[Rfam]
RNA sequence: GGAUAAUUAUCCUGUUUCUUUACGAUCCAUUUUAAUAUUAUAAUAUUAAAAUGGAUCGUAAAGAAACAGGAUGGAGUGUA
Numbered sequence: 001g002g003a004u005a006a007u008u009a010u011c012c013u014g015u016u017u018c019u020u021u022a023c024g025a026u027c028c029a030u031u032u033u034a035a036u037a038u039u040a041u042a043a044u045a046u047u048a049a050a051a052u053g054g055a056u057c058g059u060a061a062a063g064a065a066a067c068a069g070g071a072u073g074g075a076g077u078g079u080a
Stems, first nucleotide, its partner, number of pairs: 007074019027054005